[Rfam]
RNA sequence: GCAUUUUCGAGCCAAAAGUGUGAAACGCCUACGCGGGGAAAUCAGUCCACUGGACUGAUUUCUGAUCCCGCUUCGAUACGUAGGAUAAUGCGAUAAAACAAAUAGUUAGAGCGGCUCCAACGAUUCCGUUUUAACCGGAACCGCUCUGGAAUUUCUAAAAUGAAAAGCCCCGCAUUCCCCCGAAGUUGGUCGUCCAACUUUCGGGGGCAGUUCAAUGGGCGGGG
Numbered sequence: 001g002c003a004u005u006u007u008c009g010a011g012c013c014a015a016a017a018g019u020g021u022g023a024a025a026c027g028c029c030u031a032c033g034c035g036g037g038g039a040a041a042u043c044a045g046u047c048c049a050c051u052g053g054a055c056u057g058a059u060u061u062c063u064g065a066u067c068c069c070g071c072u073u074c075g076a077u078a079c080g081u082a083g084g085a086u087a088a089u090g091c092g093a094u095a096a097a098a099c100a101a102a103u104a105g106u107u108a109g110a111g112c113g114g115c116u117c118c119a120a121c122g123a124u125u126c127c128g129u130u131u132u133a134a135c136c137g138g139a140a141c142c143g144c145u146c147u148g149g150a151a152u153u154u155c156u157a158a159a160a161u162g163a164a165a166a167g168c169c170c171c172g173c174a175u176u177c178c179c180c181c182g183a184a185g186u187u188g189g190u191c192g193u194c195c196a197a198c199u200u201u202c203g204g205g206g207g208c209a210g211u212u213c214a215a216u217g218g219g220c221g222g223g224g
Stems, first nucleotide, its partner, number of pairs: 002092001004090001006088002012084002015081001018079003021075004026070002028037003038062011103137001105135010116123002141222006161214004167208005